[Rfam]
RNA sequence: AUGCCUAAUCUGCCAAAACCUGCAAAGGUGCGGGGGACCCGAACGACCGUGCGAACCGUCCGAAGACGCUCGCGCUUGGGGUGAAUCGCCGAUGCUCGAUCCGCGUAGGACUGAUCUCCCAGUCCGAACCCGACAACUAACCUCGCCGGCAAUCCAAGGAGGAUAC
Numbered sequence: 001a002u003g004c005c006u007a008a009u010c011u012g013c014c015a016a017a018a019c020c021u022g023c024a025a026a027g028g029u030g031c032g033g034g035g036g037a038c039c040c041g042a043a044c045g046a047c048c049g050u051g052c053g054a055a056c057c058g059u060c061c062g063a064a065g066a067c068g069c070u071c072g073c074g075c076u077u078g079g080g081g082u083g084a085a086u087c088g089c090c091g092a093u094g095c096u097c098g099a100u101c102c103g104c105g106u107a108g109g110a111c112u113g114a115u116c117u118c119c120c121a122g123u124c125c126g127a128a129c130c131c132g133a134c135a136a137c138u139a140a141c142c143u144c145g146c147c148g149g150c151a152a153u154c155c156a157a158g159g160a161g162g163a164u165a166c
Stems, first nucleotide, its partner, number of pairs: 011151004018029003030146006040078002079131003087105003108125004
Source information: The record is a 166-nucleotide sequence from Cohnella sp. AR92, which matches "c-di-AMP riboswitch aptamer (ydaO/yuaA leader)" in Rfam. Rfam's curators write: This family represents a conserved RNA structure found upstream of the ydaO and yuaA genes in Bacillus subtilis and related genes in other bacteria. The base pairs follow the family's consensus structure.